[Rfam]
RNA: Small nucleolar RNA SNORA63
RNA sequence: CAGCAGGAUUUAGACUACAAUAUAGCUGCUCAGUGCUUUGUUGUCAUUCUCCCUGCUUAAAUUAAGGUUGUUUCUUAACUAUACCUGUCUGCUUUACCUCUGUAGCAGCCAGGGAUGCUUGGUCUCAUAUAU
Numbered sequence: 001c002a003g004c005a006g007g008a009u010u011u012a013g014a015c016u017a018c019a020a021u022a023u024a025g026c027u028g029c030u031c032a033g034u035g036c037u038u039u040g041u042u043g044u045c046a047u048u049c050u051c052c053c054u055g056c057u058u059a060a061a062u063u064a065a066g067g068u069u070g071u072u073u074c075u076u077a078a079c080u081a082u083a084c085c086u087g088u089c090u091g092c093u094u095u096a097c098c099u100c101u102g103u104a105g106c107a108g109c110c111a112g113g114g115a116u117g118c119u120u121g122g123u124c125u126c127a128u129a130u131a132u
Stems, first nucleotide, its partner, number of pairs: 003056005017044006024037003084113004089108004
Dot-bracket structure: ..(((((.........((((((.(((........))).)))))).......)))))...........................((((.((((............)))).))))...................